[Rfam]
RNA: mir-1 microRNA precursor family
Organism: Octopus sinensis
RNA sequence: AUGUCGAUUAUAUAUUUCUUUACUACCCACAAUGUUUAGCCCCUUGUGGGUAGUAAAGAAAUAUAUAAUCGACAU
Numbered sequence: 001a002u003g004u005c006g007a008u009u010a011u012a013u014a015u016u017u018c019u020u021u022a023c024u025a026c027c028c029a030c031a032a033u034g035u036u037u038a039g040c041c042c043c044u045u046g047u048g049g050g051u052a053g054u055a056a057a058g059a060a061a062u063a064u065a066u067a068a069u070c071g072a073c074a075u
Stems, first nucleotide, its partner, number of pairs: 007069019027049005